[Rfam]
RNA sequence: ACAACAUUUGGACCGUCGGUCUACAGAGCAAUAUCGCCCGUUCGGUGGAAGAUCUUCCCUUAGCAU
Numbered sequence: 001a002c003a004a005c006a007u008u009u010g011g012a013c014c015g016u017c018g019g020u021c022u023a024c025a026g027a028g029c030a031a032u033a034u035c036g037c038c039c040g041u042u043c044g045g046u047g048g049a050a051g052a053u054c055u056u057c058c059c060u061u062a063g064c065a066u
Stems, first nucleotide, its partner, number of pairs: 005063001010058003015053003020049005026043004